[Rfam]
RNA sequence: CCAUGGGCUGGCGCCCAUGGCUACAUCACGCCGUCCCUUCGGGACU
Numbered sequence: 001c002c003a004u005g006g007g008c009u010g011g012c013g014c015c016c017a018u019g020g021c022u023a024c025a026u027c028a029c030g031c032c033g034u035c036c037c038u039u040c041g042g043g044a045c046u
Base pairs, nucleotide, nucleotide: 001020002019003018004017005016006015007014008013033045034044035043036042037041
Source information: A member of the RNA family "Acido-Lenti-1 RNA" from Roseimaritima ulvae, 46 nucleotides long. The match comes from Rfam's covariance-model search (50 bits). The source organism's lineage runs through Bacteria, Pseudomonadati, Pirellulales, Pirellulaceae and Roseimaritima.